RNA sequence: ACCACUGAGCCAUCUCUCCAGCCCCUACAAUGAAAACUUUAAAAACACUGAAGAGGGGCUGGAGAGAUGGCUCAGCGGU
Numbered sequence: 001a002c003c004a005c006u007g008a009g010c011c012a013u014c015u016c017u018c019c020a021g022c023c024c025c026u027a028c029a030a031u032g033a034a035a036a037c038u039u040u041a042a043a044a045a046c047a048c049u050g051a052a053g054a055g056g057g058g059c060u061g062g063a064g065a066g067a068u069g070g071c072u073c074a075g076c077g078g079u
Base pairs, nucleotide, nucleotide: 002078003077005075006074007073008072009071010070011069012068013067014066015065016064017063018062019061020060021059022058023057024056
RNA: mir-3473 microRNA precursor family
Organism: Nannospalax galili